[Rfam]
RNA: Small nucleolar RNA R16
Organism: Dorcoceras hygrometricum
RNA sequence: GAAGGCAAAUGAUGCAAGAUUUUCUUAUCCUACACACUGAAAGAUAGUGUUGACCUAACUCCGCUUAUUAUCUGAUGCCUUC
Numbered sequence: 001g002a003a004g005g006c007a008a009a010u011g012a013u014g015c016a017a018g019a020u021u022u023u024c025u026u027a028u029c030c031u032a033c034a035c036a037c038u039g040a041a042a043g044a045u046a047g048u049g050u051u052g053a054c055c056u057a058a059c060u061c062c063g064c065u066u067a068u069u070a071u072c073u074g075a076u077g078c079c080u081u082c
Stems, first nucleotide, its partner, number of pairs: 003080005